RNA sequence: AGAGGAGGGAUCCAAAGGGAUCGCAUUGAUCCUUUAUUUUUCUUUUUAAAAAAAAUUUACCCUAAUUUUGGAUCAUGCUAUCCCUUUGGAUUCCUCCUU
Numbered sequence: 001a002g003a004g005g006a007g008g009g010a011u012c013c014a015a016a017g018g019g020a021u022c023g024c025a026u027u028g029a030u031c032c033u034u035u036a037u038u039u040u041u042c043u044u045u046u047u048a049a050a051a052a053a054a055a056u057u058u059a060c061c062c063u064a065a066u067u068u069u070g071g072a073u074c075a076u077g078c079u080a081u082c083c084c085u086u087u088g089g090a091u092u093c094c095u096c097c098u099u
Stems, first nucleotide, its partner, number of pairs: 002099005008093014023078004028074005036067001